[Rfam]
RNA sequence: CCAACAUGGAUACACCGGGAGGUCACUCUCCCUGGGCUCUGCCCAGGUGGUAGAGGGGAGCAUAGGGCUCUGCUCCAUGAUAUACAGUCCCUUUCCACAAUACUAGAGAAGAAGCUGGGCCUUGUGUCUAUGUCUGCAUAUUCCUACAACUUCUCAGAGUCCAUUGGGCAGUGACUGAGGAGAUAAACCAUGCAGGAAACAAAG
Numbered sequence: 001c002c003a004a005c006a007u008g009g010a011u012a013c014a015c016c017g018g019g020a021g022g023u024c025a026c027u028c029u030c031c032c033u034g035g036g037c038u039c040u041g042c043c044c045a046g047g048u049g050g051u052a053g054a055g056g057g058g059a060g061c062a063u064a065g066g067g068c069u070c071u072g073c074u075c076c077a078u079g080a081u082a083u084a085c086a087g088u089c090c091c092u093u094u095c096c097a098c099a100a101u102a103c104u105a106g107a108g109a110a111g112a113a114g115c116u117g118g119g120c121c122u123u124g125u126g127u128c129u130a131u132g133u134c135u136g137c138a139u140a141u142u143c144c145u146a147c148a149a150c151u152u153c154u155c156a157g158a159g160u161c162c163a164u165u166g167g168g169c170a171g172u173g174a175c176u177g178a179g180g181a182g183a184u185a186a187a188c189c190a191u192g193c194a195g196g197a198a199a200c201a202a203a204g
Stems, first nucleotide, its partner, number of pairs: 001106001003104001006101002008044002011041002015035002018029004047098004056091004060085001062083003065078001133196007150182006159169004
RNA: Small nucleolar RNA SNORA73 family